[Rfam]
RNA: MIR1120/MIR1122 microRNA precursor family
RNA sequence: GUACUCCCUGUGUCCCAUUAUAUAAGAAUGUUUUUGACACUACACUAGCUAGUGUCAAAAACAUUCUUAUAUUAUGGGACGGAGGGAGUAU
Numbered sequence: 001g002u003a004c005u006c007c008c009u010g011u012g013u014c015c016c017a018u019u020a021u022a023u024a025a026g027a028a029u030g031u032u033u034u035u036g037a038c039a040c041u042a043c044a045c046u047a048g049c050u051a052g053u054g055u056c057a058a059a060a061a062c063a064u065u066c067u068u069a070u071a072u073u074a075u076g077g078g079a080c081g082g083a084g085g086g087a088g089u090a091u
Base pairs, nucleotide, nucleotide: 003089004088005087007085008084009083011081013079014078015077016076017075020072021071022070023069024068025067026066027065028064029063030062031061032060033059034058035057036056037055038054039053040052041051